Shown here is a 189-nucleotide sequence from Prevotella sp. AM34-19LB, a member of the family "Bacteroidales-1 6S-Bacteroidales RNA suggested". The family's consensus secondary structure is taken from published work. The family's RNA type in Rfam is small RNA. From the family's description: Bacteroidales-1 was first reported in a comparative genomics-based approach of genome and metagenome sequences from Weinberg et al. 2010 In a high-resolution transcriptome map study of Bacteroides thetaiotaomicron, Ryan et al. 2020 report this sRNA as 6S RNA homologue of Bacteroides, in the study they obtain evidence of small product RNAs (pRNAs) related to 6S function. A search with the family's covariance model found it, with a score of 116 bits.

RNA sequence: GGUCGUGUCGGUUCGAUCGGGAUACUCAUCAAAUUACACUUAUGAAACCGAGAAGACUUCUCUUGCCUAUGGCGGGCCACAUAAACUGACAUGUCAACUAAGCUGCAAAGCCGGUGGAUUACAAAAGCGGAGAGCUCUCAAAUGUUUAUGACAUUCGGAGUUUCAUCACAUCAUCGAGCGACCCUUUCC
Numbered sequence: 001g002g003u004c005g006u007g008u009c010g011g012u013u014c015g016a017u018c019g020g021g022a023u024a025c026u027c028a029u030c031a032a033a034u035u036a037c038a039c040u041u042a043u044g045a046a047a048c049c050g051a052g053a054a055g056a057c058u059u060c061u062c063u064u065g066c067c068u069a070u071g072g073c074g075g076g077c078c079a080c081a082u083a084a085a086c087u088g089a090c091a092u093g094u095c096a097a098c099u100a101a102g103c104u105g106c107a108a109a110g111c112c113g114g115u116g117g118a119u120u121a122c123a124a125a126a127g128c129g130g131a132g133a134g135c136u137c138u139c140a141a142a143u144g145u146u147u148a149u150g151a152c153a154u155u156c157g158g159a160g161u162u163u164c165a166u167c168a169c170a171u172c173a174u175c176g177a178g179c180g181a182c183c184c185u186u187u188c189c
Stems, first nucleotide, its partner, number of pairs: 057134002060132002063130004070123002077117004102111003